This 104-nucleotide RNA from Zestomonas carbonaria belongs to the Rfam family "Pseudomon-Rho RNA". A search with the family's covariance model found it, with a score of 95 bits.
[Rfam]
RNA sequence: UUCGGCCUCGCAACGGUUUCUCCGCUGCCCUCCAUAAGCCGUCGUCGACGCAUUCCCAAUUAGAACUAGUUCGCGAUCCUGUCGCUUUCUUCCCGCGACGCGGC
Numbered sequence: 001u002u003c004g005g006c007c008u009c010g011c012a013a014c015g016g017u018u019u020c021u022c023c024g025c026u027g028c029c030c031u032c033c034a035u036a037a038g039c040c041g042u043c044g045u046c047g048a049c050g051c052a053u054u055c056c057c058a059a060u061u062a063g064a065a066c067u068a069g070u071u072c073g074c075g076a077u078c079c080u081g082u083c084g085c086u087u088u089c090u091u092c093c094c095g096c097g098a099c100g101c102g103g104c
Stems, first nucleotide, its partner, number of pairs: 010028003014024002038104004043100005073085005